RNA sequence: GGCUUCCUUCUGUGGGGUGAUCGAUUGUGGGGCCCCAAGAUUGAUCACCCCGCAGAGAGAGGCC
Numbered sequence: 001g002g003c004u005u006c007c008u009u010c011u012g013u014g015g016g017g018u019g020a021u022c023g024a025u026u027g028u029g030g031g032g033c034c035c036c037a038a039g040a041u042u043g044a045u046c047a048c049c050c051c052g053c054a055g056a057g058a059g060a061g062g063c064c
Base pairs, nucleotide, nucleotide: 001064002063003062004061005060006059008057009056010055011054012053013052014051015050016049017048018047019046020045021044022043023042024041025040026039028037029036030035
This 64-nucleotide sequence from Cnephaeus nilssonii belongs to the Rfam family "mir-9242 microRNA precursor family". The base pairs follow the family's consensus structure, which was predicted with RNAalifold. Lineage of the source: Eukaryota > Gnathostomata > Sarcopterygii > Boreoeutheria > Cnephaeus.